[Rfam]
RNA: FMN riboswitch aptamer (RFN element)
Organism: Mammaliicoccus stepanovicii
RNA sequence: AUUCAUCUUCGGGGUUUGGUGAAAUUCCAUACCGGCGGUUAUAGCCCGCGACCUAGUAUAUUUUGAAUAUAUACUGGCUGACUUAGUGGAAAUCUAAGGCCGACAGUUAAAGUCUGGAUGGGAGAAGAUGGAG
Numbered sequence: 001a002u003u004c005a006u007c008u009u010c011g012g013g014g015u016u017u018g019g020u021g022a023a024a025u026u027c028c029a030u031a032c033c034g035g036c037g038g039u040u041a042u043a044g045c046c047c048g049c050g051a052c053c054u055a056g057u058a059u060a061u062u063u064u065g066a067a068u069a070u071a072u073a074c075u076g077g078c079u080g081a082c083u084u085a086g087u088g089g090a091a092a093u094c095u096a097a098g099g100c101c102g103a104c105a106g107u108u109a110a111a112g113u114c115u116g117g118a119u120g121g122g123a124g125a126a127g128a129u130g131g132a133g
Base pairs, nucleotide, nucleotide: 003131004130005129006128007127008126009125010124017029018028019027031113032112033102034101035049036048037047038046044100045099053077054076055075056074082098083097084096085095086094104116105115106114